[Rfam]
RNA sequence: AGGCAUUUUGAUUUUUAAAUGGAUAAGAUUUUGAUCUUAGUGUGUAAGAGUUCUUGAAAACUAUAAAAAAAAGAGCAAUACCAACCCUUUUGAUAGAAGAAGAAAUUGGUAGUGCUCCUUU
Numbered sequence: 001a002g003g004c005a006u007u008u009u010g011a012u013u014u015u016u017a018a019a020u021g022g023a024u025a026a027g028a029u030u031u032u033g034a035u036c037u038u039a040g041u042g043u044g045u046a047a048g049a050g051u052u053c054u055u056g057a058a059a060a061c062u063a064u065a066a067a068a069a070a071a072a073g074a075g076c077a078a079u080a081c082c083a084a085c086c087c088u089u090u091u092g093a094u095a096g097a098a099g100a101a102g103a104a105a106u107u108g109g110u111a112g113u114g115c116u117c118c119u120u121u
Base pairs, nucleotide, nucleotide: 008023009022011020012019069121070120071119073117074116075115076114077113079111080110081109083107084106088103089102090101091100
The record is a 121-nucleotide sequence from Jatropha curcas, which matches "Plastid-psbA-1 3UTR RNA" in Rfam. The base pairs follow the family's consensus structure, which was predicted with LocARNA. Clan: Plastid-psbA 3UTR RNA clan. Lineage of the source: Eukaryota > Spermatophyta > Magnoliopsida > eudicotyledons > Jatropha. It is annotated as a cis-regulatory element.